[Rfam]
RNA sequence: UCAGGUCAGGCUGUAACAGCAAAUCAAAAUAGGUGUUUUGAAUCCUAACACCUAUUUUGAUUUGCUGUUACAGCCUGACCUGA
Numbered sequence: 001u002c003a004g005g006u007c008a009g010g011c012u013g014u015a016a017c018a019g020c021a022a023a024u025c026a027a028a029a030u031a032g033g034u035g036u037u038u039u040g041a042a043u044c045c046u047a048a049c050a051c052c053u054a055u056u057u058u059g060a061u062u063u064g065c066u067g068u069u070a071c072a073g074c075c076u077g078a079c080c081u082g083a
Base pairs, nucleotide, nucleotide: 001083002082003081004080005079006078013071014070015069016068017067018066019065020064021063022062023061024060026058027057028056029055030054031053032052033051034050035049036048
RNA: mir-15 microRNA precursor family
Organism: Pelusios castaneus